Rfam assigns this 103-nucleotide sequence from Laribacter hongkongensis to the family "TPP riboswitch aptamer (THI element)". Taxonomically the source falls in Laribacter hongkongensis (Bacteria, Pseudomonadati, Pseudomonadota, Aquaspirillaceae). The base pairs follow the family's consensus structure, which is taken from published work.
RNA sequence: AACCGUGACUCGGGGUGUCGUGUGGCCUGGCCACCGGCUGAGACUUUACCCGCAUUCACCUGAUCUGGGUCAUGCCAGCGUAGGGAGGUCACGAUGGAAGCGG
Number, nucleotide and partner (000 for none) at each position: 001a000002a000003c000004c000005g000006u091007g090008a089009c088010u087011c052012g051013g050014g049015g000016u000017g038018u037019c036020g035021u000022g000023u000024g000025g000026c000027c000028u000029g000030g000031c000032c000033a000034c000035c020036g019037g018038c017039u000040g000041a000042g000043a000044c000045u000046u000047u000048a000049c014050c013051c012052g011053c000054a000055u000056u000057c000058a000059c084060c083061u082062g081063a000064u000065c078066u077067g076068g075069g000070u000071c000072a000073u000074g000075c068076c067077a066078g065079c000080g000081u062082a061083g060084g059085g000086a000087g010088g009089u008090c007091a006092c000093g000094a000095u000096g000097g000098a000099a000100g000101c000102g000103g000